RNA sequence: GGCAGCUCCUUCACUCGGAUCGUCCGGCACGUUCCUGCCGGUGAAAGGAAGCGCUU
Numbered sequence: 001g002g003c004a005g006c007u008c009c010u011u012c013a014c015u016c017g018g019a020u021c022g023u024c025c026g027g028c029a030c031g032u033u034c035c036u037g038c039c040g041g042u043g044a045a046a047g048g049a050a051g052c053g054c055u056u
Base pairs, nucleotide, nucleotide: 007048008047010045011044012043013042024041025040026039027038028037029036
The family of this 56-nucleotide RNA sequence from Micromonospora pattaloongensis is "msiK RNA". The source organism's lineage runs through Bacteria, Bacillati, Micromonosporales, Micromonosporaceae and Micromonospora. It is annotated as a cis-regulatory element. A search with the family's covariance model found it, with a score of 50 bits.